[Rfam]
RNA sequence: ACACGAGGAAGGAGGUGGUCUGGAGUUGAUUUCAUUCAGGACGCGUGAGGUGGCUGCCAGCUAGCCGCUACCGCUGAGAAAAGGAUUCACUUCCGCGCGAGCGCUAGCGAAUCCCAGGCAGCUACCCGGCCCCCGAGCCCUCGGCUAUGUCCGGUCGAGACCGUCCGCGCUCCGCGCGGCGGUAUGGCUCGGGGGCCGUUCCUU
Dot-bracket structure: .............((((((.................................)))))).((((((.(((..(((....................)))..)))))))))..................(((((((((((((((((((........))))))..........................)))))))))))))......
A member of the RNA family "Actinobacteria sRNA Ms_IGR-5" from Skermania sp. ID1734, 204 nucleotides long. It scores 152 bits against the family's covariance model. On this family, see Li et al., RNA 2013: "Identification of small RNAs in Mycobacterium smegmatis using heterologous Hfq". Pairs were carried over by alignment from the consensus structure.